[Rfam]
RNA sequence: UCCAGCGGCUGCUCAGUAGUCAGUGUAGAUCCUGUGAGGCUAACAGCAGCUACAUCUGGCUACUGGGUCUCAGCUGACAUCC
Numbered sequence: 001u002c003c004a005g006c007g008g009c010u011g012c013u014c015a016g017u018a019g020u021c022a023g024u025g026u027a028g029a030u031c032c033u034g035u036g037a038g039g040c041u042a043a044c045a046g047c048a049g050c051u052a053c054a055u056c057u058g059g060c061u062a063c064u065g066g067g068u069c070u071c072a073g074c075u076g077a078c079a080u081c082c
Stems, first nucleotide, its partner, number of pairs: 013066006020059003023055006032049004
The family of this 82-nucleotide RNA sequence from Gouania willdenowi is "mir-221 microRNA precursor family". On this family, see Yao et al., J Virol 2008: "MicroRNA profile of Marek's disease virus-transformed T-cell line MSB-1: predominance of virus-encoded microRNAs". Its family is annotated with RISC complex and miRNA-mediated post-transcriptional gene silencing in the Gene Ontology. The family has 72 seed sequences and 1,797 matches in Rfam 15.1. Taxonomically the source falls in Gouania (Eukaryota, Metazoa, Deuterostomia, Gobiesocidae). The family's consensus secondary structure was predicted with RNAalifold.